[Rfam]
RNA sequence: CGCGGUGCAGUAAAUGGUCUGCACUAAGGGCCGAGUGGGGCCGUAAAC
Numbered sequence: 001c002g003c004g005g006u007g008c009a010g011u012a013a014a015u016g017g018u019c020u021g022c023a024c025u026a027a028g029g030g031c032c033g034a035g036u037g038g039g040g041c042c043g044u045a046a047a048c
Stems, first nucleotide, its partner, number of pairs: 004025007029042004
RNA: gut-2 RNA